[Rfam]
RNA sequence: ACAUGCCAGGAUCGCCCCCCGUCAGCGCGUUGCGCCCACGGGGGCUGAGCCG
Numbered sequence: 001a002c003a004u005g006c007c008a009g010g011a012u013c014g015c016c017c018c019c020c021g022u023c024a025g026c027g028c029g030u031u032g033c034g035c036c037c038a039c040g041g042g043g044g045c046u047g048a049g050c051c052g
Stems, first nucleotide, its partner, number of pairs: 016044007025035004